[Rfam]
RNA: potC RNA
RNA sequence: AAGAAUGUGCUCACUUUCUUUCUCCAUUAGGAUCUUUACCCUUUCCUAAUUUGAUUGUGGGCACUCUUAA
Numbered sequence: 001a002a003g004a005a006u007g008u009g010c011u012c013a014c015u016u017u018c019u020u021u022c023u024c025c026a027u028u029a030g031g032a033u034c035u036u037u038a039c040c041c042u043u044u045c046c047u048a049a050u051u052u053g054a055u056u057g058u059g060g061g062c063a064c065u066c067u068u069a070a
Stems, first nucleotide, its partner, number of pairs: 007064008017054002028048005